[Rfam]
RNA sequence: UAGCAGGUGAAAGUCCUGCAGUGGUAAAGGUAGGGCAGCCACUUAGUCAGUAACCAGCGUAUGGAGUAAUCUAUGCGUUGAAGCGUUAUGGAAUGUUCCGAAUGGAGCAGGCAAACUGGCAGGUUGUAACAUAA
Numbered sequence: 001u002a003g004c005a006g007g008u009g010a011a012a013g014u015c016c017u018g019c020a021g022u023g024g025u026a027a028a029g030g031u032a033g034g035g036c037a038g039c040c041a042c043u044u045a046g047u048c049a050g051u052a053a054c055c056a057g058c059g060u061a062u063g064g065a066g067u068a069a070u071c072u073a074u075g076c077g078u079u080g081a082a083g084c085g086u087u088a089u090g091g092a093a094u095g096u097u098c099c100g101a102a103u104g105g106a107g108c109a110g111g112c113a114a115a116c117u118g119g120c121a122g123g124u125u126g127u128a129a130c131a132u133a134a
Stems, first nucleotide, its partner, number of pairs: 020043005050089005055080006064071002094109006111127003
RNA: Group II catalytic intron D1-D4-4
Organism: Variimorphobacter saccharofermentans